[Rfam]
Notes:
A member of the RNA family "Group I catalytic intron" from Funneliformis mosseae, 538 nucleotides long. From the family's description: Group I catalytic introns are large self-splicing ribozymes. It scores 68 bits against the family's covariance model. Rfam links the family to the GO term Group I intron splicing. NCBI's taxonomy places the organism under Eukaryota, Fungi, Glomeromycotina, Glomeraceae, Funneliformis.
RNA sequence: GAUUCGUCCUUGAGUGGAAGGGCCUUAACCUAUUGCGAAAUGGAAAAAUUGGUAUACCCAUAUAUGGCCACAUCGUCAAAUUUCCGGAAACUCCUAAAGCCUUUGGGUACCGCGGAGAGCGUGAAAACGGUCUUGCAGCAGAUGGUCGAAAGGAUAUCGGAUGGUAAUAACCCCUUAGGAUCUUAGGUGGAAUGAAGAUUAAUUCUGAAUUCCUUCCUGGACCUUAGUUACUGGAAGACGGAUAGAUCGGAAGGUCCGAAUGGAUGGUUAAGAGCCAAACUCCGAACAGGUAGAAAUGUAAAUUCUAUGUGAUCUAUCUAAUUAAGGAUCUCGAAAGAGAGAAUGGAAAAUCGGCAGCCAAGCGUUCUGGGCUCACUGCUUCUUUGAAGCAACCCGUACGUGCAGUUCAUCGACUAAAUGGCGAUGGGUGACCGAGCAGAAACAACUUAAACUUCGAGAAUAAGCUCUGGAAUCUGUGUUGGAUAAUGAUCCAAUUCGGUUGCUUAAGAUAUAGUCAAUAGACGCCCGAAAGGGUAUC
Number, nucleotide and partner (000 for none) at each position: 001g024002a000003u022004u021005c020006g000007u018008c017009c016010u000011u000012g000013a000014g000015u000016g009017g008018a007019a000020g005021g004022g003023c000024c001025u000026u000027a000028a000029c000030c043031u042032a041033u040034u039035g000036c000037g000038a000039a034040a033041u032042g031043g030044a000045a000046a000047a000048a000049u000050u000051g000052g000053u000054a000055u000056a000057c000058c000059c000060a000061u000062a000063u000064a000065u000066g000067g000068c000069c000070a000071c426072a425073u424074c423075g422076u000077c420078a419079a000080a000081u000082u356083u000084c354085c353086g352087g351088a000089a000090a000091c000092u347093c346094c345095u000096a000097a000098a000099g000100c000101c000102u000103u000104u000105g000106g000107g000108u000109a000110c000111c000112g000113c000114g000115g000116a000117g000118a000119g000120c000121g000122u000123g000124a000125a000126a000127a000128c000129g000130g000131u000132c000133u000134u000135g000136c000137a000138g000139c000140a000141g000142a000143u000144g000145g000146u000147c000148g000149a000150a000151a000152g000153g000154a000155u000156a000157u000158c000159g000160g000161a000162u000163g000164g000165u000166a000167a000168u000169a000170a000171c000172c000173c000174c000175u000176u000177a000178g000179g000180a000181u000182c000183u000184u000185a000186g000187g000188u000189g000190g000191a000192a000193u000194g000195a000196a000197g000198a000199u000200u000201a000202a000203u000204u000205c000206u000207g000208a000209a000210u000211u000212c000213c000214u000215u000216c000217c000218u000219g000220g000221a000222c000223c000224u000225u000226a000227g000228u000229u000230a000231c000232u000233g000234g000235a000236a000237g000238a000239c000240g000241g000242a000243u000244a000245g000246a000247u000248c000249g000250g000251a000252a000253g000254g000255u000256c000257c000258g000259a000260a000261u000262g000263g000264a000265u000266g000267g000268u000269u000270a000271a000272g000273a000274g000275c000276c000277a000278a000279a000280c000281u000282c000283c000284g000285a000286a000287c000288a000289g000290g000291u000292a000293g000294a000295a000296a000297u000298g000299u000300a000301a000302a000303u000304u000305c000306u000307a000308u000309g000310u000311g000312a000313u000314c000315u000316a000317u000318c000319u000320a000321a000322u000323u000324a000325a000326g000327g000328a000329u000330c000331u000332c000333g000334a000335a000336a000337g000338a000339g000340a000341g000342a000343a000344u000345g094346g093347a092348a000349a000350a000351u087352c086353g085354g084355c000356a082357g406358c405359c000360a000361a000362g401363c400364g399365u398366u000367c000368u000369g000370g394371g393372c000373u391374c000375a000376c000377u000378g000379c000380u000381u000382c000383u000384u000385u000386g000387a000388a000389g000390c000391a373392a000393c371394c370395c000396g000397u000398a365399c364400g363401u362402g000403c000404a000405g358406u357407u000408c000409a000410u517411c000412g516413a515414c514415u513416a512417a000418a000419u078420g077421g000422c075423g074424a073425u072426g071427g000428g503429u502430g501431a500432c499433c498434g497435a496436g495437c000438a000439g000440a000441a000442a000443c000444a000445a000446c000447u000448u000449a000450a000451a000452c000453u000454u000455c000456g000457a000458g000459a000460a000461u000462a000463a000464g000465c000466u000467c000468u000469g000470g000471a000472a000473u000474c000475u000476g000477u000478g000479u000480u000481g000482g000483a000484u000485a000486a000487u000488g000489a000490u000491c000492c000493a000494a000495u436496u435497c434498g433499g432500u431501u430502g429503c428504u000505u000506a000507a000508g000509a000510u000511a000512u416513a415514g414515u413516c412517a410518a000519u000520a000521g000522a000523c000524g535525c534526c533527c532528g000529a000530a000531a000532g527533g526534g525535u524536a000537u000538c000